[Rfam]
RNA sequence: ACUUAGGAUAGAGGCGCGAAUUUCAAGAUGAGCGGGGCGAGGCUGCCAAAGCCGAUGAACCCACGCGAAAGGGGAAAUCGCCGAAGGGGAUACUUUGGCAGAGUAUUCGCCUGGUCAGCAUGCAAACAGUGUGCGGACUGUCAUCAGAUUCUGAUGGAGAGCUAUCGACCUU
Dot-bracket structure: ......(((((....((((.((((.......((((((......................))).)))......)))).))))...(((((((((((.....)))))))).)))((((.((((((.....)))))).)))).(((((((...)))))))....)))))......
Numbered sequence: 001a002c003u004u005a006g007g008a009u010a011g012a013g014g015c016g017c018g019a020a021u022u023u024c025a026a027g028a029u030g031a032g033c034g035g036g037g038c039g040a041g042g043c044u045g046c047c048a049a050a051g052c053c054g055a056u057g058a059a060c061c062c063a064c065g066c067g068a069a070a071g072g073g074g075a076a077a078u079c080g081c082c083g084a085a086g087g088g089g090a091u092a093c094u095u096u097g098g099c100a101g102a103g104u105a106u107u108c109g110c111c112u113g114g115u116c117a118g119c120a121u122g123c124a125a126a127c128a129g130u131g132u133g134c135g136g137a138c139u140g141u142c143a144u145c146a147g148a149u150u151c152u153g154a155u156g157g158a159g160a161g162c163u164a165u166c167g168a169c170c171u172u
Stems, first nucleotide, its partner, number of pairs: 007166005016081004021076004032066003035062003085112003088108008113139004118134006141157007
Source information:
Shown here is a 172-nucleotide RNA sequence from Caproiciproducens sp. NJN-50, a member of the family "Lysine riboswitch aptamer".